[Rfam]
RNA sequence: UCGGUAUAUGAUGAAGUAUUUCGGAUGUAAAAUUUUGUCACGUCGGAAAAGCGCAAAAACGAUGUCGAGAUUUCCGUUGCCUUCCUUCUGAUACCACUU
Numbered sequence: 001u002c003g004g005u006a007u008a009u010g011a012u013g014a015a016g017u018a019u020u021u022c023g024g025a026u027g028u029a030a031a032a033u034u035u036u037g038u039c040a041c042g043u044c045g046g047a048a049a050a051g052c053g054c055a056a057a058a059a060c061g062a063u064g065u066c067g068a069g070a071u072u073u074c075c076g077u078u079g080c081c082u083u084c085c086u087u088c089u090g091a092u093a094c095c096a097c098u099u
Base pairs, nucleotide, nucleotide: 003098004097005096022076023075024074025073